[Rfam]
Record summary
Shown here is a 173-nucleotide RNA from Streptomyces albireticuli, a member of the family "c-di-AMP riboswitch aptamer (ydaO/yuaA leader)". Taxonomically the source falls in Streptomyces (Bacteria, Actinomycetota, Actinomycetes, Streptomycetaceae). Rfam describes the family as follows. This family represents a conserved RNA structure found upstream of the ydaO and yuaA genes in Bacillus subtilis and related genes in other bacteria.

RNA sequence: CCUGCCGCCGUACCGGGUGCGGACAGAUCGAAAAGGAUCGGCAGGAGCGGGAGACCCAAGCACGGCGGACCACGAUGGCGGUGGUCCUUGGGGUGAAGUCACUCAGGUGACCGGGCAACUUCGACAGCCCGAACCCGACAGGUCAUCUUUCGCAGGCGGAUGACGAAGGGUUU
Numbered sequence: 001c002c003u004g005c006c007g008c009c010g011u012a013c014c015g016g017g018u019g020c021g022g023a024c025a026g027a028u029c030g031a032a033a034a035g036g037a038u039c040g041g042c043a044g045g046a047g048c049g050g051g052a053g054a055c056c057c058a059a060g061c062a063c064g065g066c067g068g069a070c071c072a073c074g075a076u077g078g079c080g081g082u083g084g085u086c087c088u089u090g091g092g093g094u095g096a097a098g099u100c101a102c103u104c105a106g107g108u109g110a111c112c113g114g115g116c117a118a119c120u121u122c123g124a125c126a127g128c129c130c131g132a133a134c135c136c137g138a139c140a141g142g143u144c145a146u147c148u149u150u151c152g153c154a155g156g157c158g159g160a161u162g163a164c165g166a167a168g169g170g171u172u173u
Stems, first nucleotide, its partner, number of pairs: 001045007047153004051147002057090004091136003099110004113130004